Shown here is a 114-nucleotide sequence from Rodentolepis nana, a member of the family "Potassium channel RNA editing signal". The organism belongs to Rodentolepis, within Eukaryota. It scores 66 bits against the family's covariance model. Rfam describes the family as follows. This family represents a group of sequences related to the human potassium channel Kv1.1 hairpin element which directs the efficient modification of an adenosine to inosine by an adenosine deaminase acting on RNA (ADAR). The ADAR modification causes an isoleucine/valine recoding event which lies in the ion-conducting pore of the potassium channel. It is thought that this editing event targets the process of fast inactivation and allows a more rapid recovery from inactivation at negative potentials. It is annotated as a cis-regulatory element.
[Rfam]
RNA sequence: GUUGGUUACGGAGACAUGAGUCCAACUACCGCAUGGGGUCAGGUAGUUGGGUCUGGAUGCGCACUUUGCGGAGUACUCGUAUUGGCUAUGCCCAUCCCCAUCAUUGUGAAUAAC
Numbered sequence: 001g002u003u004g005g006u007u008a009c010g011g012a013g014a015c016a017u018g019a020g021u022c023c024a025a026c027u028a029c030c031g032c033a034u035g036g037g038g039u040c041a042g043g044u045a046g047u048u049g050g051g052u053c054u055g056g057a058u059g060c061g062c063a064c065u066u067u068g069c070g071g072a073g074u075a076c077u078c079g080u081a082u083u084g085g086c087u088a089u090g091c092c093c094a095u096c097c098c099c100a101u102c103a104u105u106g107u108g109a110a111u112a113a114c
Stems, first nucleotide, its partner, number of pairs: 001114002004111001007108005013102002018097001020095002037077003050062001